[Rfam]
RNA sequence: UCAUACUAGCCGGGGAGUUAGCGGUGCCCUGUAUCUACAACCCGCUUUAGUAGAGGUGAUGUCGGACUUGCGGAUGAUUUUAGUGUCAAUGCCUUAAACUGUAAAGUGUUGAGAAAAUAGUCCUGUAUUGUGGAGAAGCGGUGAAUCGUGUCAGGUUGGGAACGAAGCAGCACUAAAUCGAUUUCUUCAGGUUUACAGGGUCGCUGUUUUUGAGCUUUCGGUUUGAGAAACAGGCGGUAAAAUUUUUUCAAAUGUCCGAUGUAUGA
Numbered sequence: 001u002c003a004u005a006c007u008a009g010c011c012g013g014g015g016a017g018u019u020a021g022c023g024g025u026g027c028c029c030u031g032u033a034u035c036u037a038c039a040a041c042c043c044g045c046u047u048u049a050g051u052a053g054a055g056g057u058g059a060u061g062u063c064g065g066a067c068u069u070g071c072g073g074a075u076g077a078u079u080u081u082a083g084u085g086u087c088a089a090u091g092c093c094u095u096a097a098a099c100u101g102u103a104a105a106g107u108g109u110u111g112a113g114a115a116a117a118u119a120g121u122c123c124u125g126u127a128u129u130g131u132g133g134a135g136a137a138g139c140g141g142u143g144a145a146u147c148g149u150g151u152c153a154g155g156u157u158g159g160g161a162a163c164g165a166a167g168c169a170g171c172a173c174u175a176a177a178u179c180g181a182u183u184u185c186u187u188c189a190g191g192u193u194u195a196c197a198g199g200g201u202c203g204c205u206g207u208u209u210u211u212g213a214g215c216u217u218u219c220g221g222u223u224u225g226a227g228a229a230a231c232a233g234g235c236g237g238u239a240a241a242a243u244u245u246u247u248u249c250a251a252a253u254g255u256c257c258g259a260u261g262u263a264u265g266a
Stems, first nucleotide, its partner, number of pairs: 001266006009057003012030004017025003034054005062259003068254001072249003076245001078242005084236004092227001095225006104218001105216003113211009122199006128191002131189005137182001139180004148173004156165003

This 266-nucleotide sequence from Pseudoleptotrichia goodfellowii belongs to the Rfam family "Bacterial large signal recognition particle RNA". It scores 136 bits against the family's covariance model. The organism belongs to Pseudoleptotrichia goodfellowii, within Bacteria. Its family is annotated with signal recognition particle, plasma membrane targeting and SRP-dependent cotranslational protein targeting to membrane, signal sequence recognition in the Gene Ontology. About the family: The signal recognition particle (SRP) is a universally conserved ribonucleoprotein involved in the co-translational targeting of proteins to membranes. The family's consensus secondary structure is taken from published work. It is annotated as a non-coding RNA gene.